[Rfam]
RNA sequence: ACGGCCCAGUCAUUGGGGAGUAGCCUCCCUUCACCUCGAAAGGGGCGGUUGUCAACAGACUUGCGCCUCACGGCGCAUGGCACCCGCGACGCUUCGGUUUGGCGAGACCUUUGACUGUGCAGCCUCCGUUUCAGGCCGGGGAUGCUGCGCAGUCAAUGGUGCGUGCGUACCGGCCGGAGUCC
Dot-bracket structure: ...........................(((..........))).((((.(((((.......(((((......)))))))))).))))(((.((..................................................................................)).))).